[Rfam]
RNA sequence: ACCGGGGACCAUCUGGAGAGGUGGCAGAGCGGUUGAAUGUACCUGACUCGAAAUCAGGCAGGCGUUUAUAGCGCCUCGGGGGUUCGAAUCCCCCCCUCUCCGCCAGAUUGUGGUGACGCGUUGUGCCAAUGCCGCGUGAGUUUCGCCGGCGUCAUUGGGGGGUGAGA
Numbered sequence: 001a002c003c004g005g006g007g008a009c010c011a012u013c014u015g016g017a018g019a020g021g022u023g024g025c026a027g028a029g030c031g032g033u034u035g036a037a038u039g040u041a042c043c044u045g046a047c048u049c050g051a052a053a054u055c056a057g058g059c060a061g062g063c064g065u066u067u068a069u070a071g072c073g074c075c076u077c078g079g080g081g082g083u084u085c086g087a088a089u090c091c092c093c094c095c096c097u098c099u100c101c102g103c104c105a106g107a108u109u110g111u112g113g114u115g116a117c118g119c120g121u122u123g124u125g126c127c128a129a130u131g132c133c134g135c136g137u138g139a140g141u142u143u144c145g146c147c148g149g150c151g152u153c154a155u156u157g158g159g160g161g162g163u164g165a166g167a
Base pairs, nucleotide, nucleotide: 002079003078004077005076006075007074012028013027014026015025029072030071034068035067036066037065038064039063040062042058043057044056045055046054091162092161093160094159095158096157101115102114103113104112130151131150132149133148134147136146137145138144
The record is a 167-nucleotide sequence from Xanthomonas campestris, which matches "Proteobacterial sRNA sX4" in Rfam. Lineage of the source: Bacteria > Pseudomonadati > Lysobacterales > Xanthomonas > Xanthomonas campestris pv. campestris. For this family Rfam cites "Genome-wide transcriptome analysis of the plant pathogen Xanthomonas identifies sRNAs with putative virulence functions" (Schmidtke et al., Nucleic Acids Res, 2011). The family's RNA type in Rfam is small RNA. The sequence is in the family's curated seed alignment.